Rfam assigns this 136-nucleotide RNA sequence from Dissostichus mawsoni to the family "Small nucleolar RNA SNORA79".
A reference for the family is Schattner et al. (2006), "A computational screen for mammalian pseudouridylation guide H/ACA RNAs", RNA.
Its family is annotated with RNA processing and nucleolus in the Gene Ontology.
A search with the family's covariance model found it, with a score of 71 bits.
ACA65 (SNORA79) is a member of the H/ACA class of snoRNAs that guide the sites of modification of uridines to pseudouridines. This snoRNA was identified by computational screening and its expression in mouse experimentally verified by Northern blot and primer extension analysis.

RNA sequence: CGACGUCGGUUCCUCCUCCUGCCUUCAGUCUAGCAGGGGGAUUUUACGAUGUCGCAGAGAAACGAGUCUCUUUCACCCGGAGCGCUGCAGGCUGAAGCCCAGACACAGAGCUCCGGCUUUGCGAGACUCCACAGAU
Numbered sequence: 001c002g003a004c005g006u007c008g009g010u011u012c013c014u015c016c017u018c019c020u021g022c023c024u025u026c027a028g029u030c031u032a033g034c035a036g037g038g039g040g041a042u043u044u045u046a047c048g049a050u051g052u053c054g055c056a057g058a059g060a061a062a063c064g065a066g067u068c069u070c071u072u073u074c075a076c077c078c079g080g081a082g083c084g085c086u087g088c089a090g091g092c093u094g095a096a097g098c099c100c101a102g103a104c105a106c107a108g109a110g111c112u113c114c115g116g117c118u119u120u121g122c123g124a125g126a127c128u129c130c131a132c133a134g135a136u
Base pairs, nucleotide, nucleotide: 001054002053003052004051005050006049007048008047014041015040016039017038018037020035021034022033065128066127067126068125069124070123077116078115079114080113081112082111083110085108086107090104092102093101094100
Source information: The family has 25 seed sequences and 944 matches in Rfam 15.1.